[Rfam]
RNA sequence: ACUGGAGGACUAAAGAGGCUGAGUCUGGAGAGUGAGACUCAGGUGCCAGUGGCCUCCUGACAGCAAAGGGAUGGCGAGAGCAGUCCUGCUUCCAGCAGAGCCCAGGGCUCACUGCGCCAUCUCACACCG
Numbered sequence: 001a002c003u004g005g006a007g008g009a010c011u012a013a014a015g016a017g018g019c020u021g022a023g024u025c026u027g028g029a030g031a032g033u034g035a036g037a038c039u040c041a042g043g044u045g046c047c048a049g050u051g052g053c054c055u056c057c058u059g060a061c062a063g064c065a066a067a068g069g070g071a072u073g074g075c076g077a078g079a080g081c082a083g084u085c086c087u088g089c090u091u092c093c094a095g096c097a098g099a100g101c102c103c104a105g106g107g108c109u110c111a112c113u114g115c116g117c118c119a120u121c122u123c124a125c126a127c128c129g
Stems, first nucleotide, its partner, number of pairs: 003060001004057005017044001019042001021040006068122003079113002082109006093100001